[Rfam]
RNA sequence: UGCCUAAACUCCGCGACUCGUCGCGGGGCAUGGCACUAAAAACCGUUCAAGAUACAAAACCCAUCGUCUGGGGUGUCCUUGAACGGUCGUGCGGGGAAACCCGUGCGUUCGACCUAAGGGUCGAG
Numbered sequence: 001u002g003c004c005u006a007a008a009c010u011c012c013g014c015g016a017c018u019c020g021u022c023g024c025g026g027g028g029c030a031u032g033g034c035a036c037u038a039a040a041a042a043c044c045g046u047u048c049a050a051g052a053u054a055c056a057a058a059a060c061c062c063a064u065c066g067u068c069u070g071g072g073g074u075g076u077c078c079u080u081g082a083a084c085g086g087u088c089g090u091g092c093g094g095g096g097a098a099a100c101c102c103g104u105g106c107g108u109u110c111g112a113c114c115u116a117a118g119g120g121u122c123g124a125g
Stems, first nucleotide, its partner, number of pairs: 001035004009028007043086009058074001060072003088107008108125006